[Rfam]
RNA sequence: GCACUUACCUGGCUGGGAUCUCCCUGUGGUCAACAGGGCAGGGAAUCCAUGGUGAGGCUGGGACAUUGCACUUUCGCUCUCGGUUGACCCGUGUGGCUGCUCCGAGUUGGAGUUGGCCAACAGCUUAAUUUUUGCGUUAGGGGAUAGCGUUCGCGCUUCCCCAC
Numbered sequence: 001g002c003a004c005u006u007a008c009c010u011g012g013c014u015g016g017g018a019u020c021u022c023c024c025u026g027u028g029g030u031c032a033a034c035a036g037g038g039c040a041g042g043g044a045a046u047c048c049a050u051g052g053u054g055a056g057g058c059u060g061g062g063a064c065a066u067u068g069c070a071c072u073u074u075c076g077c078u079c080u081c082g083g084u085u086g087a088c089c090c091g092u093g094u095g096g097c098u099g100c101u102c103c104g105a106g107u108u109g110g111a112g113u114u115g116g117c118c119a120a121c122a123g124c125u126u127a128a129u130u131u132u133u134g135c136g137u138u139a140g141g142g143g144a145u146a147g148c149g150u151u152c153g154c155g156c157u158u159c160c161c162c163a164c
Stems, first nucleotide, its partner, number of pairs: 012124004016048004021043001023042005049092004054088001056085003060081003064076001094119003097115001099113001101111002140162004146157004
About this RNA:
The record is a 164-nucleotide RNA sequence from Steinernema hermaphroditum, which matches "U1 spliceosomal RNA" in Rfam. Rfam classes the family as a spliceosomal small nuclear RNA. Rfam describes the family as follows. U1 is a small nuclear RNA (snRNA) component of the spliceosome (involved in pre-mRNA splicing).